Rfam assigns this 210-nucleotide RNA sequence from Nocardioides soli to the family "Actinobacteria sRNA Ms_IGR-5". The source organism's lineage runs through Bacteria, Bacillati, Actinomycetota, Nocardioidaceae and Nocardioides. The base pairs follow the family's consensus structure. It scores 122 bits against the family's covariance model.
RNA sequence: ACACGGGAAAGGAGGUGGUCCGAAGAAUGAGUUCUUACAGGACGCGUGAGGUGGCUGCCCGCUAGCAGCCCAUCAGCAUCACCCGGGGUGGAGCCACCCCGGGACGGCUGCUGGUGAAUCCCAAGCAGUCACCCGACCCGCAGGCGCUCCGGUCAUCACGUCCACCGGGAUGGGCCCCCUCAGGGGCCCGACGCCUGCGGGUCGCUGCAU
Numbered sequence: 001a002c003a004c005g006g007g008a009a010a011g012g013a014g015g016u017g018g019u020c021c022g023a024a025g026a027a028u029g030a031g032u033u034c035u036u037a038c039a040g041g042a043c044g045c046g047u048g049a050g051g052u053g054g055c056u057g058c059c060c061g062c063u064a065g066c067a068g069c070c071c072a073u074c075a076g077c078a079u080c081a082c083c084c085g086g087g088g089u090g091g092a093g094c095c096a097c098c099c100c101g102g103g104a105c106g107g108c109u110g111c112u113g114g115u116g117a118a119u120c121c122c123a124a125g126c127a128g129u130c131a132c133c134c135g136a137c138c139c140g141c142a143g144g145c146g147c148u149c150c151g152g153u154c155a156u157c158a159c160g161u162c163c164a165c166c167g168g169g170a171u172g173g174g175c176c177c178c179c180u181c182a183g184g185g186g187c188c189c190g191a192c193g194c195c196u197g198c199g200g201g202u203c204g205c206u207g208c209a210u
Base pairs, nucleotide, nucleotide: 014059015058016057017056018055019054060116061115062114063113064112065111066110068108069107070106074102076100134204135203136202137201138200139199140198141197142196143195144194145193146192148169149168150167151166152165153164